The family of this 131-nucleotide sequence from Micromonospora siamensis is "c-di-AMP riboswitch aptamer (ydaO/yuaA leader)".
[Rfam]
RNA sequence: GCGGUGCCACCGCCCAAUCGCCGUACGGCGAGCCGGGGAACCAGGUUUCUGGGGUGAAGCCGCGCGAGCGGCCGGGGCAACUUCCGUCCCGAAUCCGUCAGCUAACCCGGUCGGCGGUCGAGGGAAGGGAA
Numbered sequence: 001g002c003g004g005u006g007c008c009a010c011c012g013c014c015c016a017a018u019c020g021c022c023g024u025a026c027g028g029c030g031a032g033c034c035g036g037g038g039a040a041c042c043a044g045g046u047u048u049c050u051g052g053g054g055u056g057a058a059g060c061c062g063c064g065c066g067a068g069c070g071g072c073c074g075g076g077g078c079a080a081c082u083u084c085c086g087u088c089c090c091g092a093a094u095c096c097g098u099c100a101g102c103u104a105a106c107c108c109g110g111u112c113g114g115c116g117g118u119c120g121a122g123g124g125a126a127g128g129g130a131a
Stems, first nucleotide, its partner, number of pairs: 011116004018031003032111006042051002052096003060071004074090004